[Rfam]
RNA sequence: UAAUUUUUCCGUCAAAGCAUUUGAAAGAAUGUGACGCAAAGCUAAAGUGCUUAAGUUAAUUAUAUGGUUGCCAGUUGCACGU
Numbered sequence: 001u002a003a004u005u006u007u008u009c010c011g012u013c014a015a016a017g018c019a020u021u022u023g024a025a026a027g028a029a030u031g032u033g034a035c036g037c038a039a040a041g042c043u044a045a046a047g048u049g050c051u052u053a054a055g056u057u058a059a060u061u062a063u064a065u066g067g068u069u070g071c072c073a074g075u076u077g078c079a080c081g082u
Stems, first nucleotide, its partner, number of pairs: 013036001017032006040076004047072001049068003056062001
RNA: c-di-GMP-I riboswitch aptamer
Organism: Filifactor alocis